[Rfam]
Nucleotides: 127
Stems, first nucleotide, its partner, number of pairs: 003056006013041002017038004025030001067123001069121005075113003080109003084105002087102001090097002
Number, partner (000 for none) and nucleotide at each position: 001000c002000c003056g004055c005054u006053c007052a008051c009000c010000a011000g012000c013041g014040c015000u016000c017038g018037g019036u020035c021000c022000c023000u024000c025030c026000g027000u028000g029000u030025g031000c032000u033000g034000u035020g036019a037018c038017c039000u040014g041013c042000c043000u044000g045000c046000c047000c048000u049000c050000c051008g052007u053006g054005a055004g056003c057000a058000a059000g060000a061000g062000a063000a064000g065000c066000a067123g068000g069121a070120c071119u072118g073117g074000u075113u076112u077111g078000g079000g080109g081108g082107u083000g084105u085104c086000g087102c088000a089000c090097c091096u092000g093000a094000g095000u096091g097090g098000a099000c100000c101000u102087g103000g104085g105084a106000g107082a108081c109080c110000a111077c112076g113075g114000u115000u116000u117073u118072c119071a120070g121069u122000a123067c124000c125000a126000c127000g
Shown here is a 127-nucleotide sequence from Lipotes vexillifer, a member of the family "Small Cajal body specific RNA 23". Rfam's curators write: scaRNAs are a specific class of small nuclear RNAs which localise to the Cajal bodies and guide the modification of RNA polymerase II transcribed spliceosomal RNAs U1, U2, U4, U5 and U12. ACA11 belongs to the H/ACA box class of guide RNAs as it has the predicted hairpin-hinge-hairpin-tail structure,the conserved H/ACA-box motifs and is found associated with GAR1. H/ACA snRNAs are predicted to guide the modification of uridines to pseudouridines in substrate RNAs however, no target RNA has been identified for scaRNA ACA11. The family's RNA type in Rfam is small Cajal body RNA. The match comes from Rfam's covariance-model search (89 bits). The family's consensus secondary structure was predicted with RNAfold. Rfam 15.1 lists 399 matches to the family in 374 species.